[Rfam]
RNA sequence: GGUACCUUUAAAUUCAGUCCCGUGAGGCUGACAAGGACAGCGGAAUAUGUGAAGAGAGCUGGCGGUUAUACGCCAUGCUUUCUUCCUGCAAGAAAGGCUUCCUGUCCACUUAUGGCAGGAAGCCUUUUUUU
Numbered sequence: 001g002g003u004a005c006c007u008u009u010a011a012a013u014u015c016a017g018u019c020c021c022g023u024g025a026g027g028c029u030g031a032c033a034a035g036g037a038c039a040g041c042g043g044a045a046u047a048u049g050u051g052a053a054g055a056g057a058g059c060u061g062g063c064g065g066u067u068a069u070a071c072g073c074c075a076u077g078c079u080u081u082c083u084u085c086c087u088g089c090a091a092g093a094a095a096g097g098c099u100u101c102c103u104g105u106c107c108a109c110u111u112a113u114g115g116c117a118g119g120a121a122g123c124c125u126u127u128u129u130u131u
Base pairs, nucleotide, nucleotide: 005036006035007034008033014031015030016029017028018027019026051085052084053083054082055081056080057079058078059077060075061074062073063072064071093127094126095125096124097123098122099121100120101119102118103117104116105115106114
The family of this 131-nucleotide RNA from Mesobacillus zeae is "PyrR binding site". This family represents the PyrR binding site and terminator structure. This RNA structure is found upstream of a variety of genes involved in pyrimidine biosynthesis and transport. The alignment also includes a portion of the antiterminator structure. The organism belongs to Mesobacillus, within Bacteria.